[Rfam]
RNA sequence: GAAUGAGAUGAUGAUUAGAUUUGUUUCCCUAUUGGUUUGAUCACCAGGAUGUUGGUUUUGUAUUAGGUCUAUCUGAUCAUUC
Numbered sequence: 001g002a003a004u005g006a007g008a009u010g011a012u013g014a015u016u017a018g019a020u021u022u023g024u025u026u027c028c029c030u031a032u033u034g035g036u037u038u039g040a041u042c043a044c045c046a047g048g049a050u051g052u053u054g055g056u057u058u059u060g061u062a063u064u065a066g067g068u069c070u071a072u073c074u075g076a077u078c079a080u081u082c
Stems, first nucleotide, its partner, number of pairs: 002081004039059001043056003
RNA: Small nucleolar RNA Z102/R77